[Rfam]
RNA sequence: AUCCGACAAAGGCAAACCUGCUGAAAGGCAGGGACGCAAAGCCAUGGGUCUAAGGGCACACGCCUACGAUCGCCAGGUUGCCGAA
Numbered sequence: 001a002u003c004c005g006a007c008a009a010a011g012g013c014a015a016a017c018c019u020g021c022u023g024a025a026a027g028g029c030a031g032g033g034a035c036g037c038a039a040a041g042c043c044a045u046g047g048g049u050c051u052a053a054g055g056g057c058a059c060a061c062g063c064c065u066a067c068g069a070u071c072g073c074c075a076g077g078u079u080g081c082c083g084a085a
Base pairs, nucleotide, nucleotide: 012037013036017032018031019030020029021028022027040079041078042077043076045075046074047073048070049069050068055064056063057062
c-di-GMP-I riboswitch aptamer: an 85-nucleotide sequence from Dethiobacter alkaliphilus. Rfam links the family to the GO term cyclic-di-GMP binding.